[Rfam]
RNA: Rhodo-rpoB RNA
RNA sequence: GGUUCGGGAGCGGCCGGUGGGACGGCCGCGGGAAUGGAACCUGACCCCCUUGUUUCGUGAGCGGUGCACCGCCGGAGCCCGACGGCAGGUGCG
Numbered sequence: 001g002g003u004u005c006g007g008g009a010g011c012g013g014c015c016g017g018u019g020g021g022a023c024g025g026c027c028g029c030g031g032g033a034a035u036g037g038a039a040c041c042u043g044a045c046c047c048c049c050u051u052g053u054u055u056c057g058u059g060a061g062c063g064g065u066g067c068a069c070c071g072c073c074g075g076a077g078c079c080c081g082a083c084g085g086c087a088g089g090u091g092c093g
Stems, first nucleotide, its partner, number of pairs: 001041005010029007065093005071086004